[Rfam]
RNA sequence: GGCGAUGACGACUGAAUCCAAUGCUGAGCAAAGGCGAUGAUUGGCCCCAGAGUGGCUGAGC
Numbered sequence: 001g002g003c004g005a006u007g008a009c010g011a012c013u014g015a016a017u018c019c020a021a022u023g024c025u026g027a028g029c030a031a032a033g034g035c036g037a038u039g040a041u042u043g044g045c046c047c048c049a050g051a052g053u054g055g056c057u058g059a060g061c
Stems, first nucleotide, its partner, number of pairs: 002024002007018002
A member of the RNA family "Small nucleolar RNA sR46" from Pyrococcus furiosus, 61 nucleotides long. By type it is a C/D-box small nucleolar RNA. Taxonomically the source falls in Pyrococcus furiosus (Archaea, Methanobacteriati, Thermococcales, Pyrococcus).